Overview
The record is a 349-nucleotide RNA from Bowdeniella nasicola, which matches "Bacterial RNase P class A" in Rfam. Pairs were carried over by alignment from the consensus structure, which is taken from published work. Ribonuclease P (RNase P) is a ubiquitous endoribonuclease, found in archaea, bacteria and eukarya as well as chloroplasts and mitochondria.

RNA sequence: CGAGUCGGCCAGGCGACCGCGGCAGAUGUCGAGGAACGUCCGGGCACCGCAGGGCAGAACGGUGGGUAACGCCCACCCGGGGUGACCCGCGGGAAAGUGCAACAGAGAGUAGACCGCCACGGCUAUGCCGAGGUAAGGGUGAAAGGGUGGUGUAAGAGACCACCGGCGCUGUCGGUGACGGCAGCGGCCAGGUAAACCCCGUUCGGUGCAAGACCGCGCAGCAGGCGAGCGGCCCGCUCAACACCUGCGGGUAGGUUGCUAGAGCGUGACGGUAACGUCACGCCAAGAUAGAUGGUCGCCGCCGAUCUUCGGAUCGGAACAGAACCCGGCGUAUCGGCCGACUCGUCCC
Number, nucleotide and partner (000 for none) at each position: 001c345002g344003a343004g342005u341006c340007g339008g338009c337010c336011a334012g300013g299014c298015g297016a296017c295018c294019g000020c031021g030022g029023c028024a000025g000026a000027u000028g023029u022030c021031g020032a000033g000034g000035a000036a332037c331038g330039u000040c329041c328042g327043g326044g325045c208046a207047c206048c205049g000050c000051a000052g235053g234054g233055c232056a000057g204058a203059a202060c201061g200062g076063u075064g074065g073066g072067u000068a000069a000070c000071g000072c066073c065074c064075a063076c062077c091078c089079g088080g087081g086082g000083u000084g000085a000086c081087c080088c079089g078090c000091g077092g199093g198094a000095a000096a000097g197098u196099g193100c192101a000102a000103c000104a000105g000106a000107g000108a000109g000110u000111a000112g000113a000114c138115c137116g134117c133118c132119a000120c130121g129122g128123c127124u000125a000126u000127g123128c122129c121130g120131a000132g118133g117134u116135a000136a000137g115138g114139g000140u000141g000142a000143a000144a000145g000146g164147g163148u162149g161150g160151u159152g000153u000154a000155a000156g000157a000158g000159a151160c150161c149162a148163c147164c146165g000166g188167c186168g185169c184170u183171g182172u181173c180174g179175g000176u000177g000178a000179c174180g173181g172182c171183a170184g169185c168186g167187g000188c166189c000190a000191g000192g100193u099194a000195a000196a098197c097198c093199c092200c061201g060202u059203u058204c057205g048206g047207u046208g045209c000210a000211a000212g257213a256214c255215c254216g000217c000218g000219c000220a000221g248222c247223a246224g245225g244226c000227g239228a238229g237230c236231g000232g055233c054234c053235c052236g230237c229238u228239c227240a000241a000242c000243a000244c225245c224246u223247g222248c221249g000250g000251g000252u000253a000254g215255g214256u213257u212258g000259c000260u000261a000262g000263a000264g283265c282266g281267u280268g279269a278270c277271g276272g000273u000274a000275a000276c271277g270278u269279c268280a267281c266282g265283c264284c000285a000286a000287g000288a000289u000290a000291g000292a000293u000294g018295g017296u016297c015298g014299c013300c012301g000302c000303c000304g000305a000306u000307c000308u000309u000310c000311g000312g000313a000314u000315c000316g000317g000318a000319a000320c000321a000322g000323a000324a000325c044326c043327c042328g041329g040330c038331g037332u036333a000334u011335c000336g010337g009338c008339c007340g006341a005342c004343u003344c002345g001346u000347c000348c000349c000